This 91-nucleotide RNA from Plasmodium ovale belongs to the Rfam family "small nucleolar RNA snoR19". The organism belongs to Plasmodium ovale, within Eukaryota.
RNA sequence: AAAAAUGAUGAUCUUUUUGCGCAAAUAUAAAUUUCGUACUACCACGUAGAAUGAUGAUAGUGGAUGUCAUCCUUGAACUGAUUUUUUUUUU
Numbered sequence: 001a002a003a004a005a006u007g008a009u010g011a012u013c014u015u016u017u018u019g020c021g022c023a024a025a026u027a028u029a030a031a032u033u034u035c036g037u038a039c040u041a042c043c044a045c046g047u048a049g050a051a052u053g054a055u056g057a058u059a060g061u062g063g064a065u066g067u068c069a070u071c072c073u074u075g076a077a078c079u080g081a082u083u084u085u086u087u088u089u090u091u
Stems, first nucleotide, its partner, number of pairs: 002088004

Rfam links the family to the GO terms nucleolus and RNA processing. The base pairs follow the family's consensus structure.